[Rfam]
RNA: Retron msr RNA
Organism: Yersinia frederiksenii
RNA sequence: GCUCUUUAGCGUAUGGACGGUUUUUGCGUCUAGUCGGGCGGUUAGCCAGACUCUAACUUAUUGAGCACU
Numbered sequence: 001g002c003u004c005u006u007u008a009g010c011g012u013a014u015g016g017a018c019g020g021u022u023u024u025u026g027c028g029u030c031u032a033g034u035c036g037g038g039c040g041g042u043u044a045g046c047c048a049g050a051c052u053c054u055a056a057c058u059u060a061u062u063g064a065g066c067a068c069u
Stems, first nucleotide, its partner, number of pairs: 005065005032052004037047003